[Rfam]
HNH endonuclease-associated RNA and ORF (HEARO) RNA: a 253-nucleotide RNA from Iningainema tapete. The family's RNA type in Rfam is non-coding RNA gene. It scores 99 bits against the family's covariance model. The source organism's lineage runs through Bacteria, Bacillati, Cyanobacteriota, Cyanophyceae and Iningainema tapete. The literature on the family includes a 2009 paper in Nature by Weinberg et al., "Exceptional structured noncoding RNAs revealed by bacterial metagenome analysis".
RNA sequence: GUCAACAACCCACCGCUGACAAACGUACAGGUACAGCGGGGGCUUGCGAAAAGCCCUAGUUGACCCGACGGUGAGGGAGAGGUUCGUACUCGUUAUCACCUCACAGCCGUUACUAGCAAGGUUAAAGAACUUACCUACAAAUCCGUGAUGCCAGUUUGUAGCUCUAAAACGAAACGGUUAAACAUGUUUAGCGGGUUAAGCAAGUGUCGUAAUAGAAAGUACCGACUAGUAACACCGUCCAGGCUCACAUUAC
Number, nucleotide and partner (000 for none) at each position: 001g064002u063003c062004a061005a060006c059007a000008a057009c000010c042011c041012a000013c039014c038015g037016c036017u035018g034019a000020c000021a000022a000023a000024c000025g000026u000027a000028c000029a000030g000031g000032u000033a000034c018035a017036g016037c015038g014039g013040g000041g011042g010043c053044u052045u051046g000047c000048g000049a000050a000051a045052a044053g043054c000055c000056c000057u008058a000059g006060u005061u004062g003063a002064c001065c000066c000067g239068a238069c237070g236071g235072u103073g102074a101075g100076g099077g000078a000079g000080a000081g000082g000083u000084u000085c000086g000087u000088a000089c000090u000091c000092g000093u000094u000095a000096u000097c000098a000099c076100c075101u074102c073103a072104c000105a000106g000107c000108c000109g233110u232111u231112a230113c229114u228115a000116g000117c000118a000119a000120g227121g226122u225123u224124a000125a000126a000127g000128a000129a000130c000131u167132u166133a000134c000135c161136u160137a159138c158139a157140a156141a155142u154143c000144c000145g000146u000147g000148a000149u000150g244151c243152c242153a000154g142155u141156u140157u139158g138159u137160a136161g135162c000163u000164c000165u000166a132167a131168a000169a000170c215171g000172a213173a000174a210175c209176g208177g207178u206179u000180a000181a000182a205183c204184a000185u202186g201187u200188u199189u198190a197191g196192c000193g000194g000195g000196u191197u190198a189199a188200g187201c186202a185203a000204g183205u182206g178207u177208c176209g175210u174211a000212a000213u172214a000215g170216a000217a000218a000219g000220u000221a000222c000223c000224g123225a122226c121227u120228a114229g113230u112231a111232a110233c109234a000235c071236c070237g069238u068239c067240c000241a000242g152243g151244c150245u000246c000247a000248c000249a000250u000251u000252a000253c000